[Rfam]
RNA sequence: CUGUAGUGCAUUGUAGUUGCAUUGCAUGUUCUAGCAGUAUUUGUGCAAUGUUUCCGCAGUGCAAUACAG
Numbered sequence: 001c002u003g004u005a006g007u008g009c010a011u012u013g014u015a016g017u018u019g020c021a022u023u024g025c026a027u028g029u030u031c032u033a034g035c036a037g038u039a040u041u042u043g044u045g046c047a048a049u050g051u052u053u054c055c056g057c058a059g060u061g062c063a064a065u066a067c068a069g
Stems, first nucleotide, its partner, number of pairs: 001069004006065001007063008016054001019051001021049007